[Rfam]
This 591-nucleotide part of an RNA from Methanosphaera stadtmanae belongs to the Rfam family "Archaeal large subunit ribosomal RNA".
RNA sequence: CUUCUAUUGGGAAGCGAAGACCCCGUAGAGUUUUACUGCAGUCUGCUAUUGAGGCUUGGUUGCAAGUAUGCAGCGUAAGUAGGAGACUUCGACGGUAUGUCGUCAGGCAUAUCUGAGUCAUUCAUGAGACACUACUUUCUUGUGACUGUGUUUCUAACAUAGCUAUUUUUUUAGGUUAUGGACAUUGGUAGAUGGGCAGUUCGGCUGGGGCGGUACGCGUUUGAAAAGAUAUCAAACGCGCCCAAAGGUUGGUUCAAGUGGGACAGAGAUCCACUGUAGAGUGUAAGGGCAUAAGCCAGCCUGACUGUAUUUCGAACAGUAAGAAAUUCAGAGGCGAAAGCCGGGCCUAACGAACCUCAAUGUCCUCGUCGAUGGGGGCUUGAGAUGACAGAAAAACUACCUCGGGGAUAACUGGGUGGUCGCAGGCAAGAGCCCAUAUCGACCCUGCGGCUUGCUACUUCGAUGUCGGUUCUUUCCAUCCUGGGUGUGCAGCAGCACCCAAGGGUGGGGCUGUUCGCCCAUUAAAGGGGAACGUGAGCUGGGUUUAGACCGUCGUGAGACAGGUUGGUUGCUAUCUAAUAGAAGUGUUUU
Numbered sequence: 001c002u003u004c005u006a007u008u009g010g011g012a013a014g015c016g017a018a019g020a021c022c023c024c025g026u027a028g029a030g031u032u033u034u035a036c037u038g039c040a041g042u043c044u045g046c047u048a049u050u051g052a053g054g055c056u057u058g059g060u061u062g063c064a065a066g067u068a069u070g071c072a073g074c075g076u077a078a079g080u081a082g083g084a085g086a087c088u089u090c091g092a093c094g095g096u097a098u099g100u101c102g103u104c105a106g107g108c109a110u111a112u113c114u115g116a117g118u119c120a121u122u123c124a125u126g127a128g129a130c131a132c133u134a135c136u137u138u139c140u141u142g143u144g145a146c147u148g149u150g151u152u153u154c155u156a157a158c159a160u161a162g163c164u165a166u167u168u169u170u171u172u173a174g175g176u177u178a179u180g181g182a183c184a185u186u187g188g189u190a191g192a193u194g195g196g197c198a199g200u201u202c203g204g205c206u207g208g209g210g211c212g213g214u215a216c217g218c219g220u221u222u223g224a225a226a227a228g229a230u231a232u233c234a235a236a237c238g239c240g241c242c243c244a245a246a247g248g249u250u251g252g253u254u255c256a257a258g259u260g261g262g263a264c265a266g267a268g269a270u271c272c273a274c275u276g277u278a279g280a281g282u283g284u285a286a287g288g289g290c291a292u293a294a295g296c297c298a299g300c301c302u303g304a305c306u307g308u309a310u311u312u313c314g315a316a317c318a319g320u321a322a323g324a325a326a327u328u329c330a331g332a333g334g335c336g337a338a339a340g341c342c343g344g345g346c347c348u349a350a351c352g353a354a355c356c357u358c359a360a361u362g363u364c365c366u367c368g369u370c371g372a373u374g375g376g377g378g379c380u381u382g383a384g385a386u387g388a389c390a391g392a393a394a395a396a397c398u399a400c401c402u403c404g405g406g407g408a409u410a411a412c413u414g415g416g417u418g419g420u421c422g423c424a425g426g427c428a429a430g431a432g433c434c435c436a437u438a439u440c441g442a443c444c445c446u447g448c449g450g451c452u453u454g455c456u457a458c459u460u461c462g463a464u465g466u467c468g469g470u471u472c473u474u475u476c477c478a479u480c481c482u483g484g485g486u487g488u489g490c491a492g493c494a495g496c497a498c499c500c501a502a503g504g505g506u507g508g509g510g511c512u513g514u515u516c517g518c519c520c521a522u523u524a525a526a527g528g529g530g531a532a533c534g535u536g537a538g539c540u541g542g543g544u545u546u547a548g549a550c551c552g553u554c555g556u557g558a559g560a561c562a563g564g565u566u567g568g569u570u571g572c573u574a575u576c577u578a579a580u581a582g583a584a585g586u587g588u589u590u591u
Base pairs, nucleotide, nucleotide: 001585002584003583004582005581006580007579008578010577011576012575014572015571022406023405024404025403027402028401029398030397031396032395033394035200036199037198038197042192043191044190045189046188047187048186051154052153053152054151055150057148058147059146060145061144062143063142064141065140066139068137078136079135080134081133082132085119086118087117097110098109099108100107101106158180159179160178161177162176163175164174203216204214205213206212217239218238219237220236221235222234242345243344248300249299250298251297252296253295254280255279257275258274259273260272261271262270281290282289305331306330307329309327310326311325312324313323333342335340356384357383358382359381360380362379364378365377366376367375415456416455417454419453420450421449422448423447424446425445426444430440431439467542468540469539470538471537472534473531474530475529476528477527480505481504484499485498486497487496488495508520509519510518511517548566549565550564551563552561553560554559
Annotation:
Rfam's curators put it in the seed alignment. NCBI's taxonomy places the organism under Archaea, Methanobacteria, Methanobacteriales, Methanobacteriaceae, Methanosphaera stadtmanae. The family has 91 seed sequences and 2,955 matches in Rfam 15.1.